[Rfam]
RNA sequence: UGGAAGUGAUGAAAUAGAGAUAAUUGGAUGUCAUUUUGAAUGGAGUGUGUGUGAUAAAUGGAAUUUAAACCAAGUCAGACUAGGGGUGGGUUGUGGGGAAUGUGUGUGUGUGUGUGCAUGUAUAGAAAAGGCUUUAAUGGGGGCGCUGAUAUUGCAGUGCUGAUUCCGGAGUGCAUCUGAGGCGUGUUGUUAAGCUCUGGGGUGCUACUUUACAACAUUGCCAAUGAUUAAAGCCCAAAACAAGCCCACCAAUACAAGCCUACACGUCCUAACUCUCUAACAGGUUCAUUUAAUGAAAGUGAUCCUGUGAUCUGAUCUGA
Number, nucleotide and partner (000 for none) at each position: 001u319002g318003g317004a316005a000006g000007u000008g000009a000010u000011g000012a000013a000014a000015u000016a000017g000018a000019g000020a000021u000022a000023a000024u000025u000026g000027g000028a000029u000030g000031u000032c000033a000034u000035u000036u000037u000038g000039a000040a000041u000042g000043g000044a000045g000046u000047g000048u000049g000050u000051g000052u000053g000054a000055u000056a000057a000058a000059u000060g000061g000062a000063a000064u000065u000066u000067a000068a000069a000070c000071c000072a000073a000074g000075u000076c000077a000078g000079a000080c000081u000082a000083g000084g000085g000086g000087u000088g000089g000090g000091u000092u000093g000094u000095g000096g000097g000098g000099a000100a000101u000102g000103u000104g000105u000106g000107u000108g000109u000110g000111u000112g000113u000114g000115u000116g000117c000118a000119u000120g000121u000122a000123u000124a000125g000126a000127a000128a000129a000130g000131g000132c000133u000134u000135u000136a000137a000138u000139g000140g000141g000142g000143g000144c000145g000146c000147u000148g000149a000150u000151a000152u000153u000154g000155c000156a000157g000158u000159g000160c000161u000162g000163a000164u000165u000166c000167c000168g000169g000170a000171g000172u000173g000174c000175a000176u000177c000178u000179g000180a000181g000182g000183c000184g000185u217186g216187u215188u214189g213190u212191u000192a210193a206194g205195c204196u000197c202198u000199g000200g000201g000202g197203u000204g195205c194206u193207a000208c000209u000210u192211u000212a190213c189214a188215a187216c186217a185218u000219u000220g000221c000222c000223a000224a000225u000226g000227a000228u000229u000230a000231a000232a000233g000234c000235c000236c000237a000238a000239a000240a000241c000242a000243a000244g000245c000246c000247c000248a000249c000250c000251a000252a000253u000254a000255c000256a000257a000258g000259c000260c000261u000262a000263c000264a000265c000266g000267u000268c000269c000270u000271a000272a000273c000274u000275c000276u000277c000278u000279a000280a000281c000282a000283g000284g000285u000286u000287c000288a000289u000290u000291u000292a000293a000294u000295g000296a000297a000298a000299g000300u000301g000302a000303u000304c000305c000306u000307g000308u000309g000310a000311u000312c000313u000314g000315a000316u004317c003318u002319g001320a000